Description: The family of this 32-nucleotide RNA sequence from Herpetotheres cachinnans is "Iron response element II". Pairs were carried over by alignment from the consensus structure, which is taken from published work. The family's RNA type in Rfam is cis-regulatory element. About the family: IRE, TFRC, SLC40A1, SDHB, SLC11A2, CDC42BPA, ACO2, ALAS2_H.SAPIENS, CDC14A, EPAS1, ALAS2, qoxD, Hao1, NDUFS1, transferrin, Aconitate. NCBI's taxonomy places the organism under Eukaryota, Craniata, Saurischia, Australaves, Herpetotheres.
[Rfam]
RNA sequence: GAAAAAUCAGGGUCAGUGUGCUCCUAUUUUUC
Numbered sequence: 001g002a003a004a005a006a007u008c009a010g011g012g013u014c015a016g017u018g019u020g021c022u023c024c025u026a027u028u029u030u031u032c
Base pairs, nucleotide, nucleotide: 001032002031003030004029005028006027007026009025010024011023012021013020014018